Rfam assigns this 508-nucleotide RNA sequence from Spongiactinospora gelatinilytica to the family "Saccharopolyspora sRNA 350". The family has 2 seed sequences and 1,170 matches in Rfam 15.1. By type it is an antisense RNA. Pairs were carried over by alignment from the consensus structure, which was predicted with RNAfold. Lineage of the source: Bacteria > Actinomycetota > Streptosporangiales > Streptosporangiaceae > Spongiactinospora.

RNA sequence: UUGAUCGAGUAGUCUGAGUCGCCUUCCGGCUCCACGACCUCGCGGUCGCCGAAGUAGUCGCCGUCGGCCAGCACGGCCAGCACGUUGUCCUCGCCGUACCGGCCUUCGCCGAUCUUGUUGACCUUGCCGUGCGCGAUGAUGAACAGCUCCUGGGCCGGGGAGCCGCUGGUCACCAGGGUGUCGCCCACCUCGAAGGUCCGCUGCUCGAACCGGCCGGCGAGGGCGUUGAGCAGCUCGGCGUCGUCGAAGCCGCGUAGCAGGCCCAGCUCGGUCAGCUCGGCCGGGAUGACGCGGAUUUCGGCGCCGGUGGAGGUGAAGCUGACCCGGCCGUCACCGACCGCGUAGCUCAGCCGCCGGUUGACCCGGUACGUUCCACCUGAGACCUGGACCCAUGGGAGCACACGCAGGAGCCACCUUGAGGUGAUGCCCUGCAUCUGCGGUACGGUCUUGGUCGUGGUCGCCAGGUUGCGUGCGGCGGCCGUACUCAGGCUCAACUGCGACGACUCUU
Numbered sequence: 001u002u003g004a005u006c007g008a009g010u011a012g013u014c015u016g017a018g019u020c021g022c023c024u025u026c027c028g029g030c031u032c033c034a035c036g037a038c039c040u041c042g043c044g045g046u047c048g049c050c051g052a053a054g055u056a057g058u059c060g061c062c063g064u065c066g067g068c069c070a071g072c073a074c075g076g077c078c079a080g081c082a083c084g085u086u087g088u089c090c091u092c093g094c095c096g097u098a099c100c101g102g103c104c105u106u107c108g109c110c111g112a113u114c115u116u117g118u119u120g121a122c123c124u125u126g127c128c129g130u131g132c133g134c135g136a137u138g139a140u141g142a143a144c145a146g147c148u149c150c151u152g153g154g155c156c157g158g159g160g161a162g163c164c165g166c167u168g169g170u171c172a173c174c175a176g177g178g179u180g181u182c183g184c185c186c187a188c189c190u191c192g193a194a195g196g197u198c199c200g201c202u203g204c205u206c207g208a209a210c211c212g213g214c215c216g217g218c219g220a221g222g223g224c225g226u227u228g229a230g231c232a233g234c235u236c237g238g239c240g241u242c243g244u245c246g247a248a249g250c251c252g253c254g255u256a257g258c259a260g261g262c263c264c265a266g267c268u269c270g271g272u273c274a275g276c277u278c279g280g281c282c283g284g285g286a287u288g289a290c291g292c293g294g295a296u297u298u299c300g301g302c303g304c305c306g307g308u309g310g311a312g313g314u315g316a317a318g319c320u321g322a323c324c325c326g327g328c329c330g331u332c333a334c335c336g337a338c339c340g341c342g343u344a345g346c347u348c349a350g351c352c353g354c355c356g357g358u359u360g361a362c363c364c365g366g367u368a369c370g371u372u373c374c375a376c377c378u379g380a381g382a383c384c385u386g387g388a389c390c391c392a393u394g395g396g397a398g399c400a401c402a403c404g405c406a407g408g409a410g411c412c413a414c415c416u417u418g419a420g421g422u423g424a425u426g427c428c429c430u431g432c433a434u435c436u437g438c439g440g441u442a443c444g445g446u447c448u449u450g451g452u453c454g455u456g457g458u459c460g461c462c463a464g465g466u467u468g469c470g471u472g473c474g475g476c477g478g479c480c481g482u483a484c485u486c487a488g489g490c491u492c493a494a495c496u497g498c499g500a501c502g503a504c505u506c507u508u
Base pairs, nucleotide, nucleotide: 003390005388006387008385009384012328013327016324019322020321021320023318025316026315032313033312035310037308038307039306045305047303048302049301050300051299052298055232058229059228060227062225063224064223065111066110067109068108075103077102078101080099082097083096084095086093118221119220122217123216127212129210130209131206133204134203135202141199143197147195153191157189158188160186162184163183164178168174169173235295236294240290241289242288243287244286245285253279254278256277257276258275329342330341331340351379353377356374357373360372361371362370391431392430394428395427397425399423400422401421403418404417407415437476438475440473442471443470444469447465448464449463450462451461452460477507478506480502481501482500484499486497487496488495